Shown here is a 63-nucleotide sequence from Sciurus vulgaris, a member of the family "Selenocysteine insertion sequence 1".
The source organism's lineage runs through Eukaryota, Theria, Glires, Sciuridae and Sciurus.
Rfam classes the family as a cis-regulatory element.
The incorporation of selenocysteine into a protein sequence is directed by an in-frame UGA codon (usually a stop codon) within the coding region of the mRNA. Selenoprotein mRNAs contain a conserved secondary structure in the 3' UTR that is required for the distinction of UGA stop from UGA selenocysteine. The selenocysteine insertion sequence (SECIS) is around 60 nt in length and adopts a hairpin structure which is sufficiently well-defined and conserved to act as a computational screen for selenoprotein genes.

RNA sequence: GUUUCAUCCAUGAUGGUCUUUCCUCUAAACCUGCUUUGGGGAAGACCUGAUUUCCGGGAAAAU
Numbered sequence: 001g002u003u004u005c006a007u008c009c010a011u012g013a014u015g016g017u018c019u020u021u022c023c024u025c026u027a028a029a030c031c032u033g034c035u036u037u038g039g040g041g042a043a044g045a046c047c048u049g050a051u052u053u054c055c056g057g058g059a060a061a062a063u
Base pairs, nucleotide, nucleotide: 001063002062003061004060015047016046017045018044019043020042021041022040023039024038